Shown here is an 88-nucleotide RNA from Manihot esculenta, a member of the family "Small nucleolar RNA R38".
About the family: snoR38 is a C/D box small nucleolar RNA conserved across yeast, human, Arabidopsis and rice. It is encoded in the intron of elongation factor-1 gamma in both pombe and cerevisiae. snoR38 guides the methylation of 2'-O-ribose sites in 28S rRNA.
The source organism's lineage runs through Eukaryota, Streptophytina, Euphyllophyta, Crotonoideae and Manihot.
RNA sequence: GUUUGUGUGUGAUGAGAAAAGUAAAAUAUCACACAGUUAUCCCUGUCUGAUAUAUUUUUAUGCUGAUUAUAAGUGAUCUGAUACAAAC
Numbered sequence: 001g002u003u004u005g006u007g008u009g010u011g012a013u014g015a016g017a018a019a020a021g022u023a024a025a026a027u028a029u030c031a032c033a034c035a036g037u038u039a040u041c042c043c044u045g046u047c048u049g050a051u052a053u054a055u056u057u058u059u060a061u062g063c064u065g066a067u068u069a070u071a072a073g074u075g076a077u078c079u080g081a082u083a084c085a086a087a088c
Stems, first nucleotide, its partner, number of pairs: 001088007